[Rfam]
RNA sequence: UGGAGGACUGAGAAGGUUGAGCAGCUUGUGUUGUGCUGUUAUAACUGGUUAUAACCUCCAAGAGUAACAAACAAACCACAAAAUUUACUGGCUCUGUUGUAAUAAACAGAGCUGAUGUGUGUGUUUGUGAACACAAC
Numbered sequence: 001u002g003g004a005g006g007a008c009u010g011a012g013a014a015g016g017u018u019g020a021g022c023a024g025c026u027u028g029u030g031u032u033g034u035g036c037u038g039u040u041a042u043a044a045c046u047g048g049u050u051a052u053a054a055c056c057u058c059c060a061a062g063a064g065u066a067a068c069a070a071a072c073a074a075a076c077c078a079c080a081a082a083a084u085u086u087a088c089u090g091g092c093u094c095u096g097u098u099g100u101a102a103u104a105a106a107c108a109g110a111g112c113u114g115a116u117g118u119g120u121g122u123g124u125u126u127g128u129g130a131a132c133a134c135a136a137c
Base pairs, nucleotide, nucleotide: 002059003058004057005056006055015046016045017044018043020040021039022038023037024036025035077129078128079127082125083124086121087120